[Rfam]
RNA sequence: GUGGGCAUCUUACCAGUCAGUGCUGGAUUUGUGUCUCUGCUCUAACACUGUCUGGUAACGAUGUUUAA
Numbered sequence: 001g002u003g004g005g006c007a008u009c010u011u012a013c014c015a016g017u018c019a020g021u022g023c024u025g026g027a028u029u030u031g032u033g034u035c036u037c038u039g040c041u042c043u044a045a046c047a048c049u050g051u052c053u054g055g056u057a058a059c060g061a062u063g064u065u066u067a068a
Stems, first nucleotide, its partner, number of pairs: 002067008010058007018050005024044004
This 68-nucleotide sequence from Cyanoderma ruficeps belongs to the Rfam family "mir-8/mir-141/mir-200 microRNA precursor family". Lineage of the source: Eukaryota > Craniata > Teleostomi > Telluraves > Cyanoderma. Clan: mir-8 microRNA precursor clan. The family has 164 seed sequences and 2,669 matches in Rfam 15.1. A search with the family's covariance model found it, with a score of 64 bits. A reference for the family is Lagos-Quintana et al. (2001), "Identification of novel genes coding for small expressed RNAs", Science.